[Rfam]
RNA sequence: UGGUCAUUACCAAGGCUUUUUGAAUACAGUUUCUUAUUUGCUGUGGACAUGACCAUAAAAUAAUUCCCUCUAGGUUUUCUAUCUGCUACUUUGCUAGCAUUCAACCCAUUGGGAACAUUC
Numbered sequence: 001u002g003g004u005c006a007u008u009a010c011c012a013a014g015g016c017u018u019u020u021u022g023a024a025u026a027c028a029g030u031u032u033c034u035u036a037u038u039u040g041c042u043g044u045g046g047a048c049a050u051g052a053c054c055a056u057a058a059a060a061u062a063a064u065u066c067c068c069u070c071u072a073g074g075u076u077u078u079c080u081a082u083c084u085g086c087u088a089c090u091u092u093g094c095u096a097g098c099a100u101u102c103a104a105c106c107c108a109u110u111g112g113g114a115a116c117a118u119u120c
Base pairs, nucleotide, nucleotide: 003053004052005051006050007049010046011045012044027040028039029038066113067112068111073106074105075104076103084099085098086097
The family of this 120-nucleotide sequence from Ictidomys tridecemlineatus is "Small nucleolar RNA SNORA32". The base pairs follow the family's consensus structure, which was predicted with RNAfold. The match comes from Rfam's covariance-model search (127 bits). Gene Ontology terms of the family: nucleolus and RNA processing.